[Rfam]
RNA: CRISPR RNA direct repeat element
Nucleotides: 030
Stems, first nucleotide, its partner, number of pairs: 009019004
Number, partner (000 for none) and nucleotide at each position: 001000a002000u003000u004000u005000a006000a007000a008000u009019a010018c011017a012016u013000c014000a015000u016012a017011u018010g019009u020000u021000a022000a023000g024000g025000u026000u027000c028000a029000a030000u